A member of the RNA family "Hepatitis delta virus ribozyme" from Rodent deltavirus, 87 nucleotides long. Taxonomically the source falls in Deltavirus (Viruses, Ribozyviria, Kolmioviridae).
RNA sequence: UCGGGACGACAAGGAAAUCCACCUCCUCGUGGUUCGUCCUGGGCGUUCGUAGAAGCAAUGCUUCCACGAUACGGCGAAGGGAUUUCC
Numbered sequence: 001u002c003g004g005g006a007c008g009a010c011a012a013g014g015a016a017a018u019c020c021a022c023c024u025c026c027u028c029g030u031g032g033u034u035c036g037u038c039c040u041g042g043g044c045g046u047u048c049g050u051a052g053a054a055g056c057a058a059u060g061c062u063u064c065c066a067c068g069a070u071a072c073g074g075c076g077a078a079g080g081g082a083u084u085u086c087c
Stems, first nucleotide, its partner, number of pairs: 003040007012085003018081003021033003025042002044073003048068003052064003056060001
Record summary:
A search with the family's covariance model found it, with a score of 50 bits.